RNA sequence: GCAGUGUUCUGGCUCUGUCGCUGGCAUGCUUCGGUGUGCGAGAGGAAAGUCCGGGCAGCAUAGGGUAUCCUGCUUCCGAAAGUAGAAGCUAUUGGUAACAGUAGAUGAAGGUAGAAGAAAAAACCGCCAUUCGCAAGGAUUGGUAAGGGUGAGAAGGUGGUGUAAGAGACCACCAGCAGUUGGGUGAUCAGCUGGCUGUGCCGUUCAGGAGCUGCAAGUUCAUGUAAACCGUUGUUUGAGGGUUGCCCGCCCGAGUCUUAGGACACAACGGAGGGUAGAACGCUAGAGCUAUGGAGCAAUUCAUAGAGUAGAUAAAUGACAGGCGGUUUGCACAUCGAAAGAGGUGUAAAAUACAGAACCCGGCUUAUAGGAACACUGUUUUA
Numbered sequence: 001g002c003a004g005u006g007u008u009c010u011g012g013c014u015c016u017g018u019c020g021c022u023g024g025c026a027u028g029c030u031u032c033g034g035u036g037u038g039c040g041a042g043a044g045g046a047a048a049g050u051c052c053g054g055g056c057a058g059c060a061u062a063g064g065g066u067a068u069c070c071u072g073c074u075u076c077c078g079a080a081a082g083u084a085g086a087a088g089c090u091a092u093u094g095g096u097a098a099c100a101g102u103a104g105a106u107g108a109a110g111g112u113a114g115a116a117g118a119a120a121a122a123a124c125c126g127c128c129a130u131u132c133g134c135a136a137g138g139a140u141u142g143g144u145a146a147g148g149g150u151g152a153g154a155a156g157g158u159g160g161u162g163u164a165a166g167a168g169a170c171c172a173c174c175a176g177c178a179g180u181u182g183g184g185u186g187a188u189c190a191g192c193u194g195g196c197u198g199u200g201c202c203g204u205u206c207a208g209g210a211g212c213u214g215c216a217a218g219u220u221c222a223u224g225u226a227a228a229c230c231g232u233u234g235u236u237u238g239a240g241g242g243u244u245g246c247c248c249g250c251c252c253g254a255g256u257c258u259u260a261g262g263a264c265a266c267a268a269c270g271g272a273g274g275g276u277a278g279a280a281c282g283c284u285a286g287a288g289c290u291a292u293g294g295a296g297c298a299a300u301u302c303a304u305a306g307a308g309u310a311g312a313u314a315a316a317u318g319a320c321a322g323g324c325g326g327u328u329u330g331c332a333c334a335u336c337g338a339a340a341g342a343g344g345u346g347u348a349a350a351a352u353a354c355a356g357a358a359c360c361c362g363g364c365u366u367a368u369a370g371g372a373a374c375a376c377u378g379u380u381u382u383a
Base pairs, nucleotide, nucleotide: 001379002378003377004376005375006374007373008372009371010370011368012324013323015322016321017320018319019318021042022041024039025038026037027036028035029034047366048365049364051363052362053361054360055359056214057213058212059211064259068210069209070208071207072206073088074087075086076085089104091102092101093100094099105205110202111201112200113199124148125147126144127143128142129141131139132138156174157173158172159171160170161169176196177194178193179192180191181190182189183188218281219280220279221278229271230270231269232268233267255264256263257262289306290305291304292303293302294301295300
RNA: Bacterial RNase P class A
Organism: Prevotella bivia